[Rfam]
RNA: mir-604 microRNA precursor family
RNA sequence: CAUCGUGCUUGACCUUCCACGCUCCCGUGUCCACUAGCAGGCAGGUUUUCUGACACGGGCUGCGGGAUUCAGGACAGCGCAUCACG
Number, nucleotide and partner (000 for none) at each position: 001c086002a000003u084004c000005g082006u081007g080008c079009u077010u076011g075012a000013c073014c072015u071016u067017c066018c065019a000020c064021g063022c062023u000024c059025c058026c057027g056028u055029g054030u053031c052032c000033a000034c000035u000036a047037g046038c045039a000040g000041g000042c000043a000044g000045g038046u037047u036048u000049u000050c000051u000052g031053a030054c029055a028056c027057g026058g025059g024060c000061u000062g022063c021064g020065g018066g017067a016068u000069u000070c000071a015072g014073g013074a000075c011076a010077g009078c000079g008080c007081a006082u005083c000084a003085c000086g001